[Rfam]
RNA sequence: AUGACCUAAAACAACGAAAGCCCUGCCUCUCUUUCAUCCUUACAGUUCCUAGCCUGUGCCAGUGUGAAUCAGGGGGUGUCAAUUAA
Numbered sequence: 001a002u003g004a005c006c007u008a009a010a011a012c013a014a015c016g017a018a019a020g021c022c023c024u025g026c027c028u029c030u031c032u033u034u035c036a037u038c039c040u041u042a043c044a045g046u047u048c049c050u051a052g053c054c055u056g057u058g059c060c061a062g063u064g065u066g067a068a069u070c071a072g073g074g075g076g077u078g079u080c081a082a083u084u085a086a
Stems, first nucleotide, its partner, number of pairs: 034067003039062002041058005047052001

The family of this 86-nucleotide RNA sequence from Peribacillus faecalis is "BsrC".
Rfam describes the family as follows. The 301 nucleotide sequence from Kouji Nakamura has been trimmed to a highly conserved ~85 nucleotide long core to form this family.
The base pairs follow the family's consensus structure, which was predicted with CMfinder.
A reference for the family is Saito et al. (2008), "Novel small RNA-encoding genes in the intergenic regions of Bacillus subtilis", Gene.
The match comes from Rfam's covariance-model search (79 bits).
NCBI's taxonomy places the organism under Bacteria, Bacillati, Bacillota, Bacillaceae, Peribacillus.